A member of the RNA family "Lysine riboswitch aptamer" from Slackia isoflavoniconvertens, 172 nucleotides long.
Gene Ontology term of the family: lysine biosynthetic process.
The base pairs follow the family's consensus structure, which is taken from published work.

RNA sequence: CGCUUUGAUAGAGGCCGCUUUUGAGCAUUCAGUCACGGUGGUAAGCCGAACCAGCUUGCCGUGAUGGUGAAGGCCGAAAGCCGAAGGGACCGCAUGGGUUCGUGUGCGGCGCCUUGGGGCGGCGGGGAAUACCCGUCGCACUGUCGCGGGAACGCGGAGUGCUAUCGAAGCU
Numbered sequence: 001c002g003c004u005u006u007g008a009u010a011g012a013g014g015c016c017g018c019u020u021u022u023g024a025g026c027a028u029u030c031a032g033u034c035a036c037g038g039u040g041g042u043a044a045g046c047c048g049a050a051c052c053a054g055c056u057u058g059c060c061g062u063g064a065u066g067g068u069g070a071a072g073g074c075c076g077a078a079a080g081c082c083g084a085a086g087g088g089a090c091c092g093c094a095u096g097g098g099u100u101c102g103u104g105u106g107c108g109g110c111g112c113c114u115u116g117g118g119g120c121g122g123c124g125g126g127g128a129a130u131a132c133c134c135g136u137c138g139c140a141c142u143g144u145c146g147c148g149g150g151a152a153c154g155c156g157g158a159g160u161g162c163u164a165u166c167g168a169a170g171c172u
Stems, first nucleotide, its partner, number of pairs: 006167006017081007025074002032065007085115004090109007116142002119139008144157005